Shown here is a 481-nucleotide sequence from Thermoleptolyngbya sichuanensis, a member of the family "Bacterial RNase P class A".
The organism belongs to Thermoleptolyngbya sichuanensis, within Bacteria.
Gene Ontology terms of the family: dimeric ribonuclease P complex, tRNA processing and ribonuclease P activity.
It is annotated as a ribozyme.
RNA sequence: AGAGGAGGCGACGGCGGUUGCGGAUGUUGAGGAGUUGCAGUUGCGGCUCUGGUGGCAUCUGAGGAAAGUCCGGGCUCCCGAAAGACCAGACCUGCUUGGUAACGCCAAGUGCGCGUGAGCGUGAGGAUAGUGCCACAGAAACAUACCGCCCAGGCGAUUUGAGAUUGGCGAUUGGCGAUUUUGGAGGCAGUCCUAAGUCCUAAAUCCAAAAUCUAAAAUCAAGAUCCCAACCCUGGGUAAGGGUGCAAAGGUGCGGUAAGAGCGCACCAGCAGCGUCGAGAGGCGCUGGCUCGGUAAACCCCGGUCGGGAGCAAGGUCGAAGGAGCAACGGUUGGUCUUUUACCGGCUCCGAGGUGCAGUAUAUGCUGCAUCUGCCAAUCCGCUAGAGGUGUCUGGCGACAGACAUCCCAGAUAGAUAACUGCCCUCGGCUGGCUUGCCAGUGCGAGAACAGAACCCGGCUUAUGUCCGCCUCUUCCCUCC
Numbered sequence: 001a002g003a004g005g006a007g008g009c010g011a012c013g014g015c016g017g018u019u020g021c022g023g024a025u026g027u028u029g030a031g032g033a034g035u036u037g038c039a040g041u042u043g044c045g046g047c048u049c050u051g052g053u054g055g056c057a058u059c060u061g062a063g064g065a066a067a068g069u070c071c072g073g074g075c076u077c078c079c080g081a082a083a084g085a086c087c088a089g090a091c092c093u094g095c096u097u098g099g100u101a102a103c104g105c106c107a108a109g110u111g112c113g114c115g116u117g118a119g120c121g122u123g124a125g126g127a128u129a130g131u132g133c134c135a136c137a138g139a140a141a142c143a144u145a146c147c148g149c150c151c152a153g154g155c156g157a158u159u160u161g162a163g164a165u166u167g168g169c170g171a172u173u174g175g176c177g178a179u180u181u182u183g184g185a186g187g188c189a190g191u192c193c194u195a196a197g198u199c200c201u202a203a204a205u206c207c208a209a210a211a212u213c214u215a216a217a218a219u220c221a222a223g224a225u226c227c228c229a230a231c232c233c234u235g236g237g238u239a240a241g242g243g244u245g246c247a248a249a250g251g252u253g254c255g256g257u258a259a260g261a262g263c264g265c266a267c268c269a270g271c272a273g274c275g276u277c278g279a280g281a282g283g284c285g286c287u288g289g290c291u292c293g294g295u296a297a298a299c300c301c302c303g304g305u306c307g308g309g310a311g312c313a314a315g316g317u318c319g320a321a322g323g324a325g326c327a328a329c330g331g332u333u334g335g336u337c338u339u340u341u342a343c344c345g346g347c348u349c350c351g352a353g354g355u356g357c358a359g360u361a362u363a364u365g366c367u368g369c370a371u372c373u374g375c376c377a378a379u380c381c382g383c384u385a386g387a388g389g390u391g392u393c394u395g396g397c398g399a400c401a402g403a404c405a406u407c408c409c410a411g412a413u414a415g416a417u418a419a420c421u422g423c424c425c426u427c428g429g430c431u432g433g434c435u436u437g438c439c440a441g442u443g444c445g446a447g448a449a450c451a452g453a454a455c456c457c458g459g460c461u462u463a464u465g466u467c468c469g470c471c472u473c474u475u476c477c478c479u480c481c
Stems, first nucleotide, its partner, number of pairs: 002476009011466001013424007021061009066462003070459005075311004089306003093303002095109005110124001111122004125301002130299002132295003146242002148238007250268006270290001271288007315381002325372001329368004388407008